[Rfam]
The family of this 422-nucleotide part of an RNA from Pseudovirgaria hyperparasitica is "Eukaryotic large subunit ribosomal RNA".
NCBI's taxonomy places the organism under Eukaryota, Opisthokonta, saccharomyceta, leotiomyceta, Pseudovirgaria.
The base pairs follow the family's consensus structure, which is taken from published work.

RNA sequence: UAACCUUAGAUUAGAUAGGGAUACCCGCUAAACUUAAGUAUAUUAAUAAGCGGAGGAAAAGAAACCAAUAGGGAUUGCCUUAGUAACGGCGAGUGAAGCGGCAACAGCUUAAAUUUAAAAUCUAGCACCUCUGGGUGUCCGAGUUGUAAUUUAUAGAGGAUGCUUUAGUACCGGUACUACUCUAGGUUCUUUAGAAUAGAACGCCAUAGAGGGUGAGAGCCCCGUCUCUAGGCGGUGCUAGGUACCAUGUAAAGCGCCUUUAACGAGUCGAGUUAUUUAGGAAUACAGCUCUAAAUAGGAGGUAAAUUUCUUCUAAAGCUAAAUAUAGGCUGGAGACCGAUAGCGCAUAAGUAGAGUAAUUAAAAGAUAAAAAGUACUUUAGAAAGAGAGUUAAAUAGCGCGUGAAAUUAUUAAAAGGGAAG
Numbered sequence: 001u002a003a004c005c006u007u008a009g010a011u012u013a014g015a016u017a018g019g020g021a022u023a024c025c026c027g028c029u030a031a032a033c034u035u036a037a038g039u040a041u042a043u044u045a046a047u048a049a050g051c052g053g054a055g056g057a058a059a060a061g062a063a064a065c066c067a068a069u070a071g072g073g074a075u076u077g078c079c080u081u082a083g084u085a086a087c088g089g090c091g092a093g094u095g096a097a098g099c100g101g102c103a104a105c106a107g108c109u110u111a112a113a114u115u116u117a118a119a120a121u122c123u124a125g126c127a128c129c130u131c132u133g134g135g136u137g138u139c140c141g142a143g144u145u146g147u148a149a150u151u152u153a154u155a156g157a158g159g160a161u162g163c164u165u166u167a168g169u170a171c172c173g174g175u176a177c178u179a180c181u182c183u184a185g186g187u188u189c190u191u192u193a194g195a196a197u198a199g200a201a202c203g204c205c206a207u208a209g210a211g212g213g214u215g216a217g218a219g220c221c222c223c224g225u226c227u228c229u230a231g232g233c234g235g236u237g238c239u240a241g242g243u244a245c246c247a248u249g250u251a252a253a254g255c256g257c258c259u260u261u262a263a264c265g266a267g268u269c270g271a272g273u274u275a276u277u278u279a280g281g282a283a284u285a286c287a288g289c290u291c292u293a294a295a296u297a298g299g300a301g302g303u304a305a306a307u308u309u310c311u312u313c314u315a316a317a318g319c320u321a322a323a324u325a326u327a328g329g330c331u332g333g334a335g336a337c338c339g340a341u342a343g344c345g346c347a348u349a350a351g352u353a354g355a356g357u358a359a360u361u362a363a364a365a366g367a368u369a370a371a372a373a374g375u376a377c378u379u380u381a382g383a384a385a386g387a388g389a390g391u392u393a394a395a396u397a398g399c400g401c402g403u404g405a406a407a408u409u410a411u412u413a414a415a416a417g418g419g420a421a422g
Stems, first nucleotide, its partner, number of pairs: 024055001025053005035042002065072002076103004086094002106320004112151004118145002121142002125138003156261002158258002163254004168245005174239001176236003180232002186202001188201001190199002205209001212222002270291005276285001297314005354361002377388004
Dot-bracket structure: .......................((((((.....((....))......))))).).........((....))...((((......((.....)).....))))..((((..((((..((.((..(((........)))..)).))..))))....((((...((((.(((((.(.(((.((....(.(.((......)).))..(...)..((.......))........)).)))..).))))).....))))..)).))........(((((.(........).))))).....(((((........)))))..)))).................................((....))...............((((....))))..................................